[Rfam]
RNA sequence: UUCCCUGUGGUUCGCAAACUCCCACAUUAAAAAAACUAAGGAAUC
Numbered sequence: 001u002u003c004c005c006u007g008u009g010g011u012u013c014g015c016a017a018a019c020u021c022c023c024a025c026a027u028u029a030a031a032a033a034a035a036c037u038a039a040g041g042a043a044u045c
Base pairs, nucleotide, nucleotide: 006026007025008024009023010022016037